Rfam assigns this 85-nucleotide sequence from Panagrolaimus davidi to the family "tRNA". The base pairs follow the family's consensus structure, which is taken from published work.
RNA sequence: GGUUCUCUGGCGCAAUGGAUAGCGCGUCUGACUUCUAACCCUCGAAGUAAUCAGAAGGCUGCGGGUUCGAGUCCCGCGAGAACCU
Numbered sequence: 001g002g003u004u005c006u007c008u009g010g011c012g013c014a015a016u017g018g019a020u021a022g023c024g025c026g027u028c029u030g031a032c033u034u035c036u037a038a039c040c041c042u043c044g045a046a047g048u049a050a051u052c053a054g055a056a057g058g059c060u061g062c063g064g065g066u067u068c069g070a071g072u073c074c075c076g077c078g079a080g081a082a083c084c085u
Stems, first nucleotide, its partner, number of pairs: 001084007010025004027055005061077005

The organism belongs to Panagrolaimus, within Eukaryota.
The literature on the family includes a 1993 paper in Trends Biochem Sci by Hou, "The tertiary structure of tRNA and the development of the genetic code".
The family's RNA type in Rfam is transfer RNA.